[Rfam]
RNA: Small nucleolar RNA snoR145
RNA sequence: GAGCGAAGGUCCCAGCAGAGAGGUAAAGACUCUGAAUUGAGGCCUCUCGAACUAGAAUACAAACCCUUCGCAGAUUAAUUAGCCGAAUCGUAGGAUGCACAGAAUGAAUUUUCCAUAUUUGUGGCAUCUGGAACCCUUGGCUAUAUUUAU
Dot-bracket structure: ..(((((((.(.(....).).....(...(((......))).....).................)))))))..........(((((.......((.(((((((..............))))).)).))........))))).........